[Rfam]
RNA sequence: GAAAUAGGUAUUCUCCGGUAAUGACAUUGAAUGUUUCGUGAUUGUUAUUGCUUGAGAAUACAAAUUGC
Numbered sequence: 001g002a003a004a005u006a007g008g009u010a011u012u013c014u015c016c017g018g019u020a021a022u023g024a025c026a027u028u029g030a031a032u033g034u035u036u037c038g039u040g041a042u043u044g045u046u047a048u049u050g051c052u053u054g055a056g057a058a059u060a061c062a063a064a065u066u067g068c
Stems, first nucleotide, its partner, number of pairs: 008061006017052010